[Rfam]
RNA sequence: GGCUGGUCUGAAGGUAAUGAGUUAUUUUAAUUUACUGUUCACAGUCAGUUACAGAUCAAAUCUUGUAUUCUAUGCUUUCACCCCUCCUCACUAUUGCACUUGACUAGUCCUGA
Numbered sequence: 001g002g003c004u005g006g007u008c009u010g011a012a013g014g015u016a017a018u019g020a021g022u023u024a025u026u027u028u029a030a031u032u033u034a035c036u037g038u039u040c041a042c043a044g045u046c047a048g049u050u051a052c053a054g055a056u057c058a059a060a061u062c063u064u065g066u067a068u069u070c071u072a073u074g075c076u077u078u079c080a081c082c083c084c085u086c087c088u089c090a091c092u093a094u095u096g097c098a099c100u101u102g103a104c105u106a107g108u109c110c111u112g113a
Base pairs, nucleotide, nucleotide: 001109002108003107004106005105006104007103008102010101011100014097015096016092018090019089020088021087047071048070
The record is a 113-nucleotide RNA sequence from Macaca fascicularis, which matches "Y RNA" in Rfam. The source organism's lineage runs through Eukaryota, Deuterostomia, Amniota, Catarrhini and Macaca. The family's consensus secondary structure is taken from published work. By type it is a non-coding RNA gene. Y RNAs are components of the Ro ribonucleoprotein particle (Ro RNP), in association with Ro60 and La proteins. A reference for the family is Teunissen et al. (2000), "Conserved features of Y RNAs: a comparison of experimentally derived secondary structures", Nucleic Acids Res.